[Rfam]
Rfam assigns this 95-nucleotide sequence from Rarobacter faecitabidus to the family "ZMP/ZTP riboswitch aptamer (pfl RNA motif)". NCBI's taxonomy places the organism under Bacteria, Actinomycetota, Micrococcales, Rarobacteraceae, Rarobacter. The match comes from Rfam's covariance-model search (43 bits).

RNA sequence: GCGGACGCGUGCAACUGGCGUUGGGUGGGGGAACCACCGGGGAGCACGCAAUCGAUUCCUCUUCGACUGGGGCAUGGUCCGCCUGGGUGCCCGGU
Number, nucleotide and partner (000 for none) at each position: 001g000002c000003g053004g052005a000006c000007g049008c048009g047010u046011g045012c044013a000014a000015c041016u040017g083018g082019c081020g080021u000022u000023g000024g000025g037026u036027g035028g034029g000030g000031g000032a000033a000034c028035c027036a026037c025038c000039g000040g016041g015042g000043a000044g012045c011046a010047c009048g008049c007050a000051a000052u004053c003054g000055a000056u000057u000058c000059c000060u000061c000062u000063u000064c000065g000066a000067c000068u000069g000070g000071g000072g090073c089074a088075u087076g000077g000078u000079c000080c020081g019082c018083c017084u000085g000086g000087g075088u074089g073090c072091c000092c000093g000094g000095u000